The family of this 573-nucleotide part of an RNA from Nanoarchaeum equitans is "Archaeal large subunit ribosomal RNA". The base pairs follow the family's consensus structure, which is taken from published work. The family has 91 seed sequences and 2,955 matches in Rfam 15.1. Rfam's curators put it in the seed alignment.
RNA sequence: GGCCCGGUGGGAAGAGAAGACCCCGUGAAGCUUAACCGCAGCCUGUCGUUGCCCCGUUGUCCCCCACGCUCAGCGUAGCGGGGAGCGAUGAACCGGCCCCUCCGGGGGUCGGGGAUGCGCCCAUGAGACACCCGCCGUGGGGGACAACGGGGCUAACCCCGAAAGGGGGACAGCGGCAGGUGGGCGGUUUGGCUGGGGCGGCACACCGCCGAAAAGAUAUCGGCGGUGCCCAAAGGUCGGCUCAGGCGGGUCAGAAAUCCGCCGUAGAGUGCAAGGGCAAAAGCCGGCCUGACACGGCCCUUUACAAGGGGCCGUGGCGGGAAACCGCGGCCUAGCGAACCCCGGUAGCCCCCGUGUGGGGCUUCGGGACGACGGAAAAGCUACUCCGGGGGUAACAGCUUGGUCGCGGGCGAAAGUUCCCAUCGACCCCGCGGUUUGAGACCUCGAUGUCGGCUCUUCUCACCCUGGCCGUGCAGCAGCGGCCAAGGGUGGGGGUGUUCACCCAUUAAAGAGGAACGUGAGCUGGGUUUAGUACGCCGCGAGGCAGUGUGGAUUCUAUCUACCGGGCCUGUU
Numbered sequence: 001g002g003c004c005c006g007g008u009g010g011g012a013a014g015a016g017a018a019g020a021c022c023c024c025g026u027g028a029a030g031c032u033u034a035a036c037c038g039c040a041g042c043c044u045g046u047c048g049u050u051g052c053c054c055c056g057u058u059g060u061c062c063c064c065c066a067c068g069c070u071c072a073g074c075g076u077a078g079c080g081g082g083g084a085g086c087g088a089u090g091a092a093c094c095g096g097c098c099c100c101u102c103c104g105g106g107g108g109u110c111g112g113g114g115a116u117g118c119g120c121c122c123a124u125g126a127g128a129c130a131c132c133c134g135c136c137g138u139g140g141g142g143g144a145c146a147a148c149g150g151g152g153c154u155a156a157c158c159c160c161g162a163a164a165g166g167g168g169g170a171c172a173g174c175g176g177c178a179g180g181u182g183g184g185c186g187g188u189u190u191g192g193c194u195g196g197g198g199c200g201g202c203a204c205a206c207c208g209c210c211g212a213a214a215a216g217a218u219a220u221c222g223g224c225g226g227u228g229c230c231c232a233a234a235g236g237u238c239g240g241c242u243c244a245g246g247c248g249g250g251u252c253a254g255a256a257a258u259c260c261g262c263c264g265u266a267g268a269g270u271g272c273a274a275g276g277g278c279a280a281a282a283g284c285c286g287g288c289c290u291g292a293c294a295c296g297g298c299c300c301u302u303u304a305c306a307a308g309g310g311g312c313c314g315u316g317g318c319g320g321g322a323a324a325c326c327g328c329g330g331c332c333u334a335g336c337g338a339a340c341c342c343c344g345g346u347a348g349c350c351c352c353c354g355u356g357u358g359g360g361g362c363u364u365c366g367g368g369a370c371g372a373c374g375g376a377a378a379a380g381c382u383a384c385u386c387c388g389g390g391g392g393u394a395a396c397a398g399c400u401u402g403g404u405c406g407c408g409g410g411c412g413a414a415a416g417u418u419c420c421c422a423u424c425g426a427c428c429c430c431g432c433g434g435u436u437u438g439a440g441a442c443c444u445c446g447a448u449g450u451c452g453g454c455u456c457u458u459c460u461c462a463c464c465c466u467g468g469c470c471g472u473g474c475a476g477c478a479g480c481g482g483c484c485a486a487g488g489g490u491g492g493g494g495g496u497g498u499u500c501a502c503c504c505a506u507u508a509a510a511g512a513g514g515a516a517c518g519u520g521a522g523c524u525g526g527g528u529u530u531a532g533u534a535c536g537c538c539g540c541g542a543g544g545c546a547g548u549g550u551g552g553a554u555u556c557u558a559u560c561u562a563c564c565g566g567g568c569c570u571g572u573u
Stems, first nucleotide, its partner, number of pairs: 001569008010561003014556002022390004027386002029382005035188004042180007051153018078135005085118003096109005157168004191204001192202003205227006230330002236288006242268002245263006269278002293316009318327001320325001341368005347363005399440003403437001404434007415423001451526001452524004456518001457515005464489002468483005492504003532550004536545003